[Rfam]
Record summary:
Shown here is a 100-nucleotide sequence from Laticauda laticaudata, a member of the family "Vault RNA". Rfam describes the family as follows. This family of RNAs are found as part of the enigmatic vault ribonucleoprotein complex. The source organism's lineage runs through Eukaryota, Deuterostomia, Serpentes, Laticaudinae and Laticauda.
Nucleotides: 100
Stems, first nucleotide, its partner, number of pairs: 002095006012084004017080004025074002028071001
Number, partner (000 for none) and nucleotide at each position: 001000g002095a003094g004093c005092c006091a007090g008000c009000u010000u011000a012084g013083c014082c015081u016000a017080g018079c019078g020077g021000u022000u023000u024000c025074u026073u027000c028071g029000c030000a031000a032000u033000c034000c035000u036000a037000g038000u039000a040000a041000u042000u043000g044000u045000u046000a047000u048000c049000c050000a051000g052000c053000u054000g055000c056000u057000a058000c059000u060000u061000g062000c063000u064000a065000g066000c067000a068000g069000u070000u071028c072000a073026a074025g075000u076000c077020c078019c079018g080017u081015g082014g083013g084012c085000g086000c087000u088000g089000c090007c091006u092005g093004g094003c095002u096000u097000u098000u099000u100000g